[Rfam]
RNA sequence: GGCGAGGAUAGGGUGGCCACCCGAAAAGCAAACUCCUCCGGCUUGCUUCCUCGCCGUUAGCACGCCGG
Number, nucleotide and partner (000 for none) at each position: 001g055002g054003c053004g052005a051006g050007g049008a048009u000010a000011g022012g021013g020014u019015g000016g000017c000018c000019a014020c013021c012022c011023g000024a000025a000026a000027a000028g046029c045030a044031a043032a000033c000034u000035c000036c000037u068038c067039c000040g000041g000042c000043u031044u030045g029046c028047u000048u008049c007050c006051u005052c004053g003054c002055c001056g000057u000058u000059a000060g000061c000062a000063c000064g000065c000066c000067g038068g037
Description: The family of this 68-nucleotide RNA sequence from Limnoglobus roseus is "int-alpA RNA". About the family: Acidobacteria (1 example), Planctomycetes (1 example), Proteobacteria. Taxonomically the source falls in Limnoglobus (Bacteria, Pseudomonadati, Planctomycetia, Gemmataceae).